A member of the RNA family "Streptomyces RNA 2736" from Actinacidiphila reveromycinica, 59 nucleotides long. Rfam describes the family as follows. Identified by deep sequencing of transcriptome at the end of exponential growth phase. Appears smaller on northern blot than sequencing transcript. This indicates processing step. The pairing is the family consensus, mapped onto this sequence. Taxonomically the source falls in Actinacidiphila (Bacteria, Actinomycetota, Actinomycetes, Kitasatosporales).

[Rfam]
RNA sequence: CGCCCGGUACGGACCCGUGGGGGGAUCCGCUCCGGGAAACGGGAGCGCCCCGUGCCGGA
Numbered sequence: 001c002g003c004c005c006g007g008u009a010c011g012g013a014c015c016c017g018u019g020g021g022g023g024g025a026u027c028c029g030c031u032c033c034g035g036g037a038a039a040c041g042g043g044a045g046c047g048c049c050c051c052g053u054g055c056c057g058g059a
Base pairs, nucleotide, nucleotide: 001057002056003036004035005034006033007032010029011028012027013026014024015023016022041050042049043048